[Rfam]
RNA sequence: UGGUGGCUCCAACCGGGACUAAAGGUCCCUGCCACCUACUGUCUCUGGGCGCGAGUAGCCGUUGGGUAGGGGACCUUUAGUCCCGGUUGGAGCCACCAA
Numbered sequence: 001u002g003g004u005g006g007c008u009c010c011a012a013c014c015g016g017g018a019c020u021a022a023a024g025g026u027c028c029c030u031g032c033c034a035c036c037u038a039c040u041g042u043c044u045c046u047g048g049g050c051g052c053g054a055g056u057a058g059c060c061g062u063u064g065g066g067u068a069g070g071g072g073a074c075c076u077u078u079a080g081u082c083c084c085g086g087u088u089g090g091a092g093c094c095a096c097c098a099a
Base pairs, nucleotide, nucleotide: 003096004095005094006093007092008091009090010089011088012087013086014085015084016083017082018081019080020079021078022077023076024075025074026073027072029070030069035065036064038062039061045055046054